Rfam assigns this 104-nucleotide sequence from Halalkalibacter wakoensis to the family "TPP riboswitch aptamer (THI element)".

[Rfam]
RNA sequence: UUAAACCACUAGGGGAGCCAAUUGGCUGAGAUUAAGGCGCGUGCUUUAGACCCUUUGAACCUGAACUAUGUAAUCAUAGCGGAGGGAAGUGGCAUCAUAAACAA
Numbered sequence: 001u002u003a004a005a006c007c008a009c010u011a012g013g014g015g016a017g018c019c020a021a022u023u024g025g026c027u028g029a030g031a032u033u034a035a036g037g038c039g040c041g042u043g044c045u046u047u048a049g050a051c052c053c054u055u056u057g058a059a060c061c062u063g064a065a066c067u068a069u070g071u072a073a074u075c076a077u078a079g080c081g082g083a084g085g086g087a088a089g090u091g092g093c094a095u096c097a098u099a100a101a102c103a104a
Stems, first nucleotide, its partner, number of pairs: 006092005011054004017026003033048005060085003066079004

The base pairs follow the family's consensus structure, which is taken from published work.
It scores 72 bits against the family's covariance model.